RNA sequence: AGCCGAUGAGGAUUAAACUCAGUAAAUUCGCAGUUUUCGCCUAAGAGCUUUCGCCUUCGCCAGGCUUGAGAGUUGAUGCUGUUAUAAUUCCUUCCUUGGAUGUCUGAGGCU
Numbered sequence: 001a002g003c004c005g006a007u008g009a010g011g012a013u014u015a016a017a018c019u020c021a022g023u024a025a026a027u028u029c030g031c032a033g034u035u036u037u038c039g040c041c042u043a044a045g046a047g048c049u050u051u052c053g054c055c056u057u058c059g060c061c062a063g064g065c066u067u068g069a070g071a072g073u074u075g076a077u078g079c080u081g082u083u084a085u086a087a088u089u090c091c092u093u094c095c096u097u098g099g100a101u102g103u104c105u106g107a108g109g110c111u
Base pairs, nucleotide, nucleotide: 001111002110003109004108047073048072049071050070051069052068
A member of the RNA family "Small nucleolar RNA SNORD14" from Carex littledalei, 111 nucleotides long. Gene Ontology terms of the family: nucleolus and RNA processing. Rfam's curators write: U14 small nucleolar RNA (U14 snoRNA) is required for early cleavages of eukaryotic precursor rRNAs. In yeasts, this molecule possess a stem-loop region (known as the Y-domain) which is essential for function. A similar structure, but with a different consensus sequence, is found in plants, but is absent in vertebrates. It is annotated as a C/D-box small nucleolar RNA. For this family Rfam cites "An essential domain in Saccharomyces cerevisiae U14 snoRNA is absent in vertebrates, but conserved in other yeasts" (Samarsky et al., Nucleic Acids Res, 1996). The family has 18 seed sequences and 4,559 matches in Rfam 15.1.